[Rfam]
RNA sequence: CCGCCCGUCGCUACUACCGAUUGAAUGAUUUAGUGAGAACUUCGGACGACUCGCCAGGGCAGCCUCCGGGCCGCUCGUGGUGUGGUUGAAAGUUGUUCAAACUUGAUCCUUUAGAGGAAGUAAAAGUCGUAACAAGGUUUCCGUAGGUGAACCUGCGGAAGGAUCAUUA
Numbered sequence: 001c002c003g004c005c006c007g008u009c010g011c012u013a014c015u016a017c018c019g020a021u022u023g024a025a026u027g028a029u030u031u032a033g034u035g036a037g038a039a040c041u042u043c044g045g046a047c048g049a050c051u052c053g054c055c056a057g058g059g060c061a062g063c064c065u066c067c068g069g070g071c072c073g074c075u076c077g078u079g080g081u082g083u084g085g086u087u088g089a090a091a092g093u094u095g096u097u098c099a100a101a102c103u104u105g106a107u108c109c110u111u112u113a114g115a116g117g118a119a120g121u122a123a124a125a126g127u128c129g130u131a132a133c134a135a136g137g138u139u140u141c142c143g144u145a146g147g148u149g150a151a152c153c154u155g156c157g158g159a160a161g162g163a164u165c166a167u168u169a
Base pairs, nucleotide, nucleotide: 001136003133006129007128009126012122013121014120015119017117018116021113023112024111025110027108028107029106030105032103033102034101037098038097039096040095043092047088048087049086050085051084052082053081054080055079056078057076058075059074060073138161139160140159141158142157143156144155145154146153147152
The record is a 169-nucleotide part of an RNA from Oryzias javanicus, which matches "Eukaryotic small subunit ribosomal RNA" in Rfam. Pairs were carried over by alignment from the consensus structure, which is taken from published work.